[Rfam]
RNA sequence: UUCUUCUCUACAAACCGGAUCUGUGUGCAGCGGUCCUCUGCUUUACGUCAGGGUCGAUUGCUGUACAGCUCGAUAACUUAUAGAAUCACCAACCUGCUAUGGUGUCCAUCUUGUCGACAGGUCCAAUAUUGACUGAUCUUCCGAUUGCCUAGUUCGUCAUCUUCUGAUGGCUUGAGCUUUGCGGUCGGCUGCUCGAGGCGCUAUAUUCCACCCCUCUUUUCCAAGGCUCUGUGCUGGUGAGGUUGAGGAAAACCAUAGUUUUGCCUACAUCC
Dot-bracket structure: ................((((((((((((((.((((((((((.....).)))))..)))).)))))).......(.((.....(.(((.............))).).......)).)))))))))..........(.....(((((......((((((((((....))))))..))))......)))))...)....((((((((........((((....((..(((.....))).....))..))))......)))))...))).......